[Rfam]
RNA sequence: GGUCCAAUGCCACGUCGCCGGUAGCCAUGAGGCGUUGACCGGCGAUGCUAUGAUUGGACCUAAAUCAAUUUCUUGUUUCGCUGCCUGAUAGGAAUCUGUGGAUCUGAUUUCUUUUGAUUCAUGGAGCCGAUUUCGGCGAUUACAUUC
Numbered sequence: 001g002g003u004c005c006a007a008u009g010c011c012a013c014g015u016c017g018c019c020g021g022u023a024g025c026c027a028u029g030a031g032g033c034g035u036u037g038a039c040c041g042g043c044g045a046u047g048c049u050a051u052g053a054u055u056g057g058a059c060c061u062a063a064a065u066c067a068a069u070u071u072c073u074u075g076u077u078u079c080g081c082u083g084c085c086u087g088a089u090a091g092g093a094a095u096c097u098g099u100g101g102a103u104c105u106g107a108u109u110u111c112u113u114u115u116g117a118u119u120c121a122u123g124g125a126g127c128c129g130a131u132u133u134c135g136g137c138g139a140u141u142a143c144a145u146u147c
Stems, first nucleotide, its partner, number of pairs: 002059007009051001013047006020040003024033003078139005091128002096124003100120005
RNA: Small nucleolar RNA snoR2/U65
Organism: Ricinus communis